[Rfam]
RNA sequence: GUGUACCCUAGAGUUCCCCUGAACACUUCAUUAGGGUUCCUUAUUUUGCACCUUACUGAAGUGUUUGGGGGAACUCCUGGGGCCAU
Numbered sequence: 001g002u003g004u005a006c007c008c009u010a011g012a013g014u015u016c017c018c019c020u021g022a023a024c025a026c027u028u029c030a031u032u033a034g035g036g037u038u039c040c041u042u043a044u045u046u047u048g049c050a051c052c053u054u055a056c057u058g059a060a061g062u063g064u065u066u067g068g069g070g071g072a073a074c075u076c077c078u079g080g081g082g083c084c085a086u
Stems, first nucleotide, its partner, number of pairs: 006081003011076010022066002024063007032055004